[Rfam]
RNA sequence: UCCCUGCUUUUCCUCCCUGAGCAGGUGCCUUACCGUGAUGACAGCGUUAAGGCUUCAAAGCCCCGGCCUUAUCGCCGGGGCUCUUUUUU
Number, nucleotide and partner (000 for none) at each position: 001u000002c000003c025004c024005u023006g022007c021008u020009u000010u000011u000012c000013c000014u000015c000016c000017c000018u000019g000020a008021g007022c006023a005024g004025g003026u000027g053028c052029c051030u050031u049032a048033c000034c000035g000036u000037g000038a000039u000040g000041a000042c000043a000044g000045c000046g000047u000048u032049a031050a030051g029052g028053c027054u000055u000056c000057a000058a000059a000060g081061c080062c079063c078064c077065g076066g075067c074068c000069u000070u000071a000072u000073c000074g067075c066076c065077g064078g063079g062080g061081c060082u000083c000084u000085u000086u000087u000088u000089u000

Overview:
Shown here is an 89-nucleotide RNA sequence from Aquabacterium soli, a member of the family "Burkholderia RNA 7 (anti-hemB)". A search with the family's covariance model found it, with a score of 60 bits. The family's consensus secondary structure is taken from published work. A reference for the family is Khoo et al. (2012), "Computational discovery and RT-PCR validation of novel Burkholderia conserved and Burkholderia pseudomallei unique sRNAs", BMC Genomics. This RNA motif was identified by computational search in b-proteobacteria Burkholderia. Co-purified with Hfq, expression confirmed by Northern blot. Gene Ontology terms of the family: bacterial biofilm matrix and protein binding. The organism belongs to Aquabacterium, within Bacteria.